The record is a 130-nucleotide RNA sequence, which matches "Small nucleolar RNA SNORA3/SNORA45 family" in Rfam. From the family's description: The members of this family belong to the H/ACA class of snoRNAs which are thought to guide the sites of modification of uridines to pseudouridines. It is one of the family's seed sequences. Its Rfam clan is "SNORA3 clan". For this family Rfam cites "RNomics: an experimental approach that identifies 201 candidates for novel, small, non-messenger RNAs in mouse" (Huttenhofer et al., EMBO J, 2001). Rfam classes the family as an H/ACA-box small nucleolar RNA.
RNA sequence: AUCGAGGCUAGAGUCACGCUUGGGUAUCGGCUAUUGCCUGAGUGUGCUAGAGUCCUCGAAGAGUAACUGCUGACCUUAUUCACUGGCUGUGGGCCUUAUGGCACAGUCAGUCACCAGGUUAGAGACAUGC
Numbered sequence: 001a002u003c004g005a006g007g008c009u010a011g012a013g014u015c016a017c018g019c020u021u022g023g024g025u026a027u028c029g030g031c032u033a034u035u036g037c038c039u040g041a042g043u044g045u046g047c048u049a050g051a052g053u054c055c056u057c058g059a060a061g062a063g064u065a066a067c068u069g070c071u072g073a074c075c076u077u078a079u080u081c082a083c084u085g086g087c088u089g090u091g092g093g094c095c096u097u098a099u100g101g102c103a104c105a106g107u108c109a110g111u112c113a114c115c116a117g118g119u120u121a122g123a124g125a126c127a128u129g130c
Base pairs, nucleotide, nucleotide: 002059003058004057005056006055007053008052009051012048013047015046016045017044018043019042020041023038024037025036026035070122071121072120073119074118075117076116082111083110084109085108086107088105089104090103091102